Rfam assigns this 441-nucleotide part of an RNA to the family "Eukaryotic large subunit ribosomal RNA".
[Rfam]
RNA sequence: GACAAGUCGUUGCGAUAGUAAUCCUGCUCAGUACGAGAGGAACCGCAGGUUCGGACAUUUGGUACAUGUGCUUAACCGAAAGAUUAGUUGUGCGAGGCUAACAUCCGCUGGAUUAUGACUGAACGCCUCUAAGUCAGAAUCCGGCCUAGCCCCGGCAACGAUAUCGUACGCAUCCUUUGCGUCGAGAGGCGUCGUUAGUCGUGACGGUAGUGUCGGGUCUCGCGGCCCGACCGUCUCGGCGAAGAGGCCCUUAGACGGAGAAGCGCCGGGAGGGCGUCGAGGCGUGUACGCCCUCUGCUUCUUGUAACCUAACAUGGGGUUGAGACGUUUGGAUGCCAAAUCGUCCGCAGACGACCUAGGUGCCGGUCGGGGUGUCGUACUUAGUAGAGCAGCCACCAUACUGCGAUCUAUUGAGACUCAGCCUUCGACUGGGUGAUUUGU
Numbered sequence: 001g002a003c004a005a006g007u008c009g010u011u012g013c014g015a016u017a018g019u020a021a022u023c024c025u026g027c028u029c030a031g032u033a034c035g036a037g038a039g040g041a042a043c044c045g046c047a048g049g050u051u052c053g054g055a056c057a058u059u060u061g062g063u064a065c066a067u068g069u070g071c072u073u074a075a076c077c078g079a080a081a082g083a084u085u086a087g088u089u090g091u092g093c094g095a096g097g098c099u100a101a102c103a104u105c106c107g108c109u110g111g112a113u114u115a116u117g118a119c120u121g122a123a124c125g126c127c128u129c130u131a132a133g134u135c136a137g138a139a140u141c142c143g144g145c146c147u148a149g150c151c152c153c154g155g156c157a158a159c160g161a162u163a164u165c166g167u168a169c170g171c172a173u174c175c176u177u178u179g180c181g182u183c184g185a186g187a188g189g190c191g192u193c194g195u196u197a198g199u200c201g202u203g204a205c206g207g208u209a210g211u212g213u214c215g216g217g218u219c220u221c222g223c224g225g226c227c228c229g230a231c232c233g234u235c236u237c238g239g240c241g242a243a244g245a246g247g248c249c250c251u252u253a254g255a256c257g258g259a260g261a262a263g264c265g266c267c268g269g270g271a272g273g274g275c276g277u278c279g280a281g282g283c284g285u286g287u288a289c290g291c292c293c294u295c296u297g298c299u300u301c302u303u304g305u306a307a308c309c310u311a312a313c314a315u316g317g318g319g320u321u322g323a324g325a326c327g328u329u330u331g332g333a334u335g336c337c338a339a340a341u342c343g344u345c346c347g348c349a350g351a352c353g354a355c356c357u358a359g360g361u362g363c364c365g366g367u368c369g370g371g372g373u374g375u376c377g378u379a380c381u382u383a384g385u386a387g388a389g390c391a392g393c394c395a396c397c398a399u400a401c402u403g404c405g406a407u408c409u410a411u412u413g414a415g416a417c418u419c420a421g422c423c424u425u426c427g428a429c430u431g432g433g434u435g436a437u438u439u440g441u
Base pairs, nucleotide, nucleotide: 006162007161008160009159010158011157012156013155016148017147018146021051023049024048025047026046027045052107053106054105055104060100061099062098067094068093069092070091071090072087073086074085075084077082109143110142111141116136117135118134119133120132172334173333174332175331338439339438340437341436342435344358347355364431365430366429367428368427369426370424371423372422374417375416382410383409384408386407389404390403391402392401

Record summary:
Pairs were carried over by alignment from the consensus structure, which is taken from published work.